The family of this 176-nucleotide RNA from Piromyces finnis is "U12 minor spliceosomal RNA". The family is grouped with related families in Rfam's "U2 clan". On this family, see Tarn and Steitz, Trends Biochem Sci 1997: "Pre-mRNA splicing: the discovery of a new spliceosome doubles the challenge". The organism belongs to Piromyces, within Eukaryota.
RNA sequence: UUGCCUCAAAUUAAUGAGUAAGGAUAAUAACUUCAUUGGGUGACGCCAAUGACAUUAUGGUAGAUAUUCUUUUGUCUAUCAUAAACUAUAUUUUAAUUUUUGAAGGGUAUAGGCUGGCCGAGUAGCGGGAUGCUUUAUUCUCUUCAUAAAGUGACCUGCUUUUGUUGUUGGUCUCC
Dot-bracket structure: ...(((.(..........).))).........(((((((......))))))).((..................................))...............(.(..(((((((..((..(((((....(((((.......)))))....))))).))....)))))))).)
It is annotated as a spliceosomal small nuclear RNA.
The pairing is the family consensus, mapped onto this sequence.